[Rfam]
RNA sequence: ACAAGAACAAUAACAAGCAAUGCACAAGACAAUAAAAAUAAGACGAAUCGACUCACGCAUAAUAAAAACAACACGGCGGAGGCGCAGCUAACUGAUUCUUUUGGAGAGGCGUUGUCAUUGGGGCUUGCCCCACAACCAGGCCGAGAACAACAAAAACUGCCCUAAGGCAGAGCCUGAACUGGUUGGAUCACUGAUCAUUGCAACACAGCGACCAAAGCAAUCCGUUUGCUCUUGGCUCCCGAUUGGGAGGGUCACUCUGGGUUAACCAGGUGACGAGGGCGUUAAACAAAAACAAGAAGCCCGAAACCAAUAAUAAAAAUAGAGCACGCAACUACUUCUGGGGGAGCUUCGGCUCCCCUUGUAGUUUCCGGGAUUUCAGCUUCGGCGAUUGC
Number, nucleotide and partner (000 for none) at each position: 001a000002c000003a000004a000005g000006a000007a000008c000009a000010a000011u000012a000013a000014c000015a000016a000017g000018c000019a000020a000021u000022g000023c000024a000025c000026a000027a000028g000029a000030c000031a000032a000033u000034a000035a000036a000037a000038a000039u000040a000041a000042g000043a000044c000045g000046a000047a000048u000049c084050g083051a000052c081053u080054c079055a000056c000057g000058c000059a000060u000061a000062a000063u000064a000065a000066a000067a000068a000069c000070a000071a000072c000073a000074c000075g000076g000077c000078g000079g054080a053081g052082g000083c050084g049085c000086a000087g000088c000089u000090a000091a000092c000093u000094g000095a000096u000097u000098c000099u217100u216101u215102u214103g213104g000105a000106g000107a000108g000109g000110c000111g000112u000113u210114g209115u208116c000117a000118u000119u000120g000121g000122g000123g000124c000125u000126u000127g000128c000129c000130c000131c000132a000133c185134a184135a183136c182137c181138a180139g179140g000141c000142c000143g000144a000145g000146a000147a000148c000149a000150a000151c000152a000153a000154a000155a000156a000157c170158u169159g168160c167161c166162c000163u000164a000165a000166g161167g160168c159169a158170g157171a000172g000173c000174c000175u000176g000177a000178a000179c139180u138181g137182g136183u135184u134185g133186g000187a000188u000189c000190a000191c000192u000193g000194a000195u000196c000197a000198u000199u000200g000201c000202a000203a000204c000205a000206c000207a000208g115209c114210g113211a000212c000213c103214a102215a101216a100217g099218c000219a000220a000221u000222c000223c000224g000225u000226u000227u000228g000229c000230u000231c000232u000233u000234g000235g000236c249237u248238c247239c246240c000241g000242a000243u000244u000245g000246g239247g238248a237249g236250g000251g000252u000253c000254a000255c000256u000257c000258u000259g000260g000261g000262u000263u000264a000265a000266c000267c000268a000269g000270g374271u373272g000273a000274c370275g369276a000277g302278g301279g300280c299281g000282u000283u000284a000285a000286a000287c000288a000289a000290a000291a000292a000293c000294a000295a000296g000297a000298a000299g280300c279301c278302c277303g000304a000305a000306a000307c000308c000309a000310a000311u000312a000313a000314u000315a000316a000317a000318a000319a000320u000321a000322g367323a366324g365325c364326a000327c000328g000329c000330a000331a000332c000333u000334a000335c000336u000337u000338c000339u000340g359341g358342g357343g356344g355345a354346g353347c352348u000349u000350c000351g000352g347353c346354u345355c344356c343357c342358c341359u340360u000361g000362u000363a000364g325365u324366u323367u322368c000369c275370g274371g000372g000373a271374u270375u000376u000377c000378a000379g000380c000381u000382u000383c000384g000385g000386c000387g000388a000389u000390u000391g000392c000